[Rfam]
RNA sequence: UGGUAGAUGCACCCUGAUUCAAUAACCUCCGGUUUCGCGGCCGGAGGUUUUUUUU
Numbered sequence: 001u002g003g004u005a006g007a008u009g010c011a012c013c014c015u016g017a018u019u020c021a022a023u024a025a026c027c028u029c030c031g032g033u034u035u036c037g038c039g040g041c042c043g044g045a046g047g048u049u050u051u052u053u054u055u
Base pairs, nucleotide, nucleotide: 002013003012004011026047027046028045029044030043031042032041033040034039
The family of this 55-nucleotide RNA sequence from Thermoleptolyngbya sichuanensis is "Nitrogen stress-induced RNA 1". For this family Rfam cites "Heterocyst-specific transcription of NsiR1, a non-coding RNA encoded in a tandem array of direct repeats in cyanobacteria" (Ionescu et al., J Mol Biol, 2010). The family has 17 seed sequences and 962 matches in Rfam 15.1. It scores 56 bits against the family's covariance model. By type it is a small RNA. The organism belongs to Thermoleptolyngbya sichuanensis, within Bacteria.